[Rfam]
RNA sequence: UUUCUGGUUGAGUUGGAAGCAGAGAUCCUGACAUUUUGCUAAAGAUGAGUGCCAGAUCUAACUCUUCCAGCUCAUACAGGAG
Numbered sequence: 001u002u003u004c005u006g007g008u009u010g011a012g013u014u015g016g017a018a019g020c021a022g023a024g025a026u027c028c029u030g031a032c033a034u035u036u037u038g039c040u041a042a043a044g045a046u047g048a049g050u051g052c053c054a055g056a057u058c059u060a061a062c063u064c065u066u067c068c069a070g071c072u073c074a075u076a077c078a079g080g081a082g
Stems, first nucleotide, its partner, number of pairs: 001082006009074009019064001023059005030052001032051004
Dot-bracket structure: ((((((..(((((((((.(...(((((..(.((((............)))))..)))))....).)))))))))..))))))
This 82-nucleotide sequence from Dinothrombium tinctorium belongs to the Rfam family "mir-750 microRNA precursor family". Rfam 15.1 lists 33 matches to the family in 33 species. Rfam links the family to the GO terms miRNA-mediated post-transcriptional gene silencing and RISC complex. Lineage of the source: Eukaryota > Metazoa > Eumetazoa > Arthropoda > Dinothrombium.